[Rfam]
RNA sequence: AAAGGCCAGUGAUGAACAAAAGUUUUGCCUACAUUGUCUGAUUGUUUACAUUGAAGAGAACUAGAGAUUUCUGAGGCCCUU
Number, nucleotide and partner (000 for none) at each position: 001a081002a080003a000004g078005g077006c076007c075008a000009g000010u000011g000012a000013u000014g000015a000016a000017c000018a000019a000020a000021a000022g000023u000024u000025u000026u000027g000028c000029c000030u000031a000032c000033a000034u000035u000036g000037u000038c000039u000040g000041a000042u000043u000044g000045u000046u000047u000048a000049c000050a000051u000052u000053g000054a000055a000056g000057a000058g000059a000060a000061c000062u000063a000064g000065a000066g000067a000068u000069u000070u000071c000072u000073g000074a000075g007076g006077c005078c004079c000080u002081u001